RNA sequence: AGGCCCUCCAGCUACCACGUGAAGCGUAUACUCUCAGUCUUUGCGGAGGUCGUUCUACUGGGCCAAGAGGC
Numbered sequence: 001a002g003g004c005c006c007u008c009c010a011g012c013u014a015c016c017a018c019g020u021g022a023a024g025c026g027u028a029u030a031c032u033c034u035c036a037g038u039c040u041u042u043g044c045g046g047a048g049g050u051c052g053u054u055c056u057a058c059u060g061g062g063c064c065a066a067g068a069g070g071c
Base pairs, nucleotide, nucleotide: 002064003063004062005061006060014050015049016048018045019044020043021042022041023040024039
Shown here is a 71-nucleotide RNA sequence from Trypanosoma cruzi, a member of the family "Trypanosomatid snoRNA TB9Cs4H2".
The literature on the family includes a 2005 paper in RNA by Liang et al., "A genome-wide analysis of C/D and H/ACA-like small nucleolar RNAs in Trypanosoma brucei reveals a trypanosome-specific pattern of rRNA modification".
The family's consensus secondary structure was predicted with WAR.
The family's RNA type in Rfam is H/ACA-box small nucleolar RNA.